[Rfam]
RNA: Yersinia sRNA 224
Organism: Brenneria rubrifaciens
RNA sequence: GAGGUUGAUGACAAAGUGCGUCGAGCGGUGAGAAUGGGUAGAUCGUAAAGACGCUGCAAGUACGUCCCUGUAAGCUCGGGCCGCACCAUCCUUGGCGCGGGCGCUUU
Numbered sequence: 001g002a003g004g005u006u007g008a009u010g011a012c013a014a015a016g017u018g019c020g021u022c023g024a025g026c027g028g029u030g031a032g033a034a035u036g037g038g039u040a041g042a043u044c045g046u047a048a049a050g051a052c053g054c055u056g057c058a059a060g061u062a063c064g065u066c067c068c069u070g071u072a073a074g075c076u077c078g079g080g081c082c083g084c085a086c087c088a089u090c091c092u093u094g095g096c097g098c099g100g101g102c103g104c105u106u107u
Stems, first nucleotide, its partner, number of pairs: 013107006019028001020026002030077003041066003045063003052056001081100004086095003